Rfam assigns this 145-nucleotide sequence from Candidatus Burkholderia verschuerenii to the family "Group II catalytic intron D1-D4-7". Group II introns are found in rRNA, tRNA and mRNA of organelles in fungi, plants and protists, and also in mRNA in bacteria.

RNA sequence: CCUGCUGUACGACCAGCAUUGCCUACCUGAACGUGCGCGACCGGUAACGGUCGGGUUCGAAGCUUCGGGGACAACGUACCCUCCUUAUGGGCGACUCAUCCGGGCGACCGGAAAGGAGCCGACACUGCCAGCAGCCGUGCGGUGU
Numbered sequence: 001c002c003u004g005c006u007g008u009a010c011g012a013c014c015a016g017c018a019u020u021g022c023c024u025a026c027c028u029g030a031a032c033g034u035g036c037g038c039g040a041c042c043g044g045u046a047a048c049g050g051u052c053g054g055g056u057u058c059g060a061a062g063c064u065u066c067g068g069g070g071a072c073a074a075c076g077u078a079c080c081c082u083c084c085u086u087a088u089g090g091g092c093g094a095c096u097c098a099u100c101c102g103g104g105c106g107a108c109c110g111g112a113a114a115g116g117a118g119c120c121g122a123c124a125c126u127g128c129c130a131g132c133a134g135c136c137g138u139g140c141g142g143u144g145u
Stems, first nucleotide, its partner, number of pairs: 003018005027068005032059002035056002038053006082091001093120001095118002102109002124143005
Dot-bracket structure: ..(((((......)))))........(((((((.((.((((((....)))))).)).))....))))).............(........).(.((.....((....)).......)).)...(((((..........)))))..

The base pairs follow the family's consensus structure. The source organism's lineage runs through Bacteria, Pseudomonadati, Pseudomonadota, Burkholderiaceae and Burkholderia.